skipping-rope RNA: an 81-nucleotide RNA sequence. Rfam classes the family as a small RNA. The family's consensus secondary structure is taken from published work. The sequence is in the family's curated seed alignment.
[Rfam]
RNA sequence: CUAUUUUGAGGUCGGAAAAGGUUCCCGACGCACUCUGAUAAGAGUACCUGAGAUGAUGGAUACACCACCCAUCCAAAAUAG
Numbered sequence: 001c002u003a004u005u006u007u008g009a010g011g012u013c014g015g016a017a018a019a020g021g022u023u024c025c026c027g028a029c030g031c032a033c034u035c036u037g038a039u040a041a042g043a044g045u046a047c048c049u050g051a052g053a054u055g056a057u058g059g060a061u062a063c064a065c066c067a068c069c070c071a072u073c074c075a076a077a078a079u080a081g
Stems, first nucleotide, its partner, number of pairs: 001081008011029005020066003031050001032045004055073005